[Rfam]
Nucleotides: 077
Stems, first nucleotide, its partner, number of pairs: 013046006021077007028040003050067006
Number, partner (000 for none) and nucleotide at each position: 001000g002000u003000c004000g005000c006000a007000a008000g009000u010000u011000u012000g013046g014045g015044g016043g017042u018041c019000a020000u021077u022076g023075u024074a025073g026072a027071a028040g029039c030038g031000u032000g033000c034000u035000c036000g037000u038030c039029g040028c041018g042017a043016c044015c045014c046013c047000u048000g049000c050067c051066a052065g053064c054063c055062c056000u057000u058000u059000u060000c061000c062055g063054g064053g065052c066051u067050g068000c069000a070000a071027u072026u073025c074024u075023a076022c077021a